[Rfam]
Nucleotides: 147
Base pairs, nucleotide, nucleotide: 003145004144005143006142007141008140009139010138016028017027018026032092033091034048035047036046037045043090044089052067053066072088073087074086075085076084094130095129096128
Number, partner (000 for none) and nucleotide at each position: 001000u002000a003145u004144g005143u006142g007141u008140u009139c010138c011000g012000g013000g014000g015000c016028u017027g018026g019000u020000g021000a022000g023000a024000a025000u026018c027017c028016a029000g030000a031000c032092c033091g034048g035047u036046g037045g038000u039000g040000a041000c042000a043090g044089u045037c046036c047035a048034c049000g050000a051000a052067c053066c054000c055000c056000g057000u058000a059000u060000c061000c062000g063000c064000g065000g066053g067052g068000c069000c070000g071000a072088a073087c074086c075085g076084g077000u078000g079000g080000a081000a082000u083000u084076c085075c086074g087073g088072u089044a090043c091033c092032g093000a094130c095129g096128g097000u098000g099000a100000u101000g102000c103000g104000c105000g106000c107000g108000g109000g110000g111000a112000g113000g114000u115000u116000c117000c118000g119000c120000g121000c122000g123000c124000g125000a126000g127000u128096c129095c130094g131000g132000a133000u134000g135000a136000g137000a138010g139009g140008a141007a142006c143005g144004c145003g146000g147000a
The family of this 147-nucleotide RNA from Leucobacter weissii is "FMN riboswitch aptamer (RFN element)". The RFN element is a highly conserved domain that is found frequently in the 5'-untranslated regions of prokaryotic mRNAs that encode for flavin mononucleotide (FMN) biosynthesis and transport proteins. A search with the family's covariance model found it, with a score of 79 bits. The base pairs follow the family's consensus structure, which is taken from published work.